[Rfam]
RNA: Mammalian CPEB3 ribozyme
Nucleotides: 074
Base pairs, nucleotide, nucleotide: 015044016043017042018041021074022073023072024071025070026069027068028040030038049064050063051062052061053060054059
Number, partner (000 for none) and nucleotide at each position: 001000g002000g003000u004000u005000g006000c007000a008000a009000g010000c011000u012000c013000a014000a015044g016043g017042c018041c019000a020000u021074a022073g023072c024071a025070g026069a027068a028040g029000g030038g031000c032000u033000c034000a035000c036000g037000g038030c039000a040028u041018g042017g043016c044015c045000u046000g047000u048000g049064a050063g051062a052061u053060u054059c055000c056000a057000a058000u059054g060053a061052a062051u063050c064049u065000g066000a067000a068027u069026u070025c071024u072023g073022c074021u